[Rfam]
A member of the RNA family "c-di-GMP-I riboswitch aptamer" from Melghiribacillus thermohalophilus, 103 nucleotides long. It scores 77 bits against the family's covariance model.
RNA sequence: AUAUGUCAAAGGCAAAACCGUCGAAAGUCGGUGACGCAAAGCUACGGAUCUAAGGUCUAACCGCCUGAAGCAAAGGUUUGACUAUGAUAGCCGGGUUGCCAUG
Numbered sequence: 001a002u003a004u005g006u007c008a009a010a011g012g013c014a015a016a017a018c019c020g021u022c023g024a025a026a027g028u029c030g031g032u033g034a035c036g037c038a039a040a041g042c043u044a045c046g047g048a049u050c051u052a053a054g055g056u057c058u059a060a061c062c063g064c065c066u067g068a069a070g071c072a073a074a075g076g077u078u079u080g081a082c083u084a085u086g087a088u089a090g091c092c093g094g095g096u097u098g099c100c101a102u103g
Base pairs, nucleotide, nucleotide: 012037013036017032018031019030020029022027040097041096042095043094045093046092047091048088049087050086055082056081057080
The base pairs follow the family's consensus structure, which is taken from published work.